[Rfam]
RNA sequence: GUGAAUUAAAUCACAAACAACCUUAUACCCCUUUGUUUGACCGUGAAAAAUUUCUCCCAUCCCCUUUGUUGUCUUGAUGACAAGAAAAAGACUCGGCUUUAUGCCGAGUCUUUUUC
Numbered sequence: 001g002u003g004a005a006u007u008a009a010a011u012c013a014c015a016a017a018c019a020a021c022c023u024u025a026u027a028c029c030c031c032u033u034u035g036u037u038u039g040a041c042c043g044u045g046a047a048a049a050a051u052u053u054c055u056c057c058c059a060u061c062c063c064c065u066u067u068g069u070u071g072u073c074u075u076g077a078u079g080a081c082a083a084g085a086a087a088a089a090g091a092c093u094c095g096g097c098u099u100u101a102u103g104c105c106g107a108g109u110c111u112u113u114u115u116c
Stems, first nucleotide, its partner, number of pairs: 003054003007050001011046004018039003022035001025034001070083001073079001087113011

Background
Rfam assigns this 116-nucleotide sequence from Thermaerobacillus caldiproteolyticus to the family "RNA Staph. aureus E (RoxS)". Its family is annotated with regulation of translational initiation in the Gene Ontology. The literature on the family includes a 2009 paper in Nucleic Acids Res by Geissmann et al., "A search for small noncoding RNAs in Staphylococcus aureus reveals a conserved sequence motif for regulation". It scores 97 bits against the family's covariance model. Rfam's curators write: It was shown to be regulated by the presence of nitric oxide (NO). Taxonomically the source falls in Thermaerobacillus (Bacteria, Bacillota, Caryophanales, Anoxybacillaceae).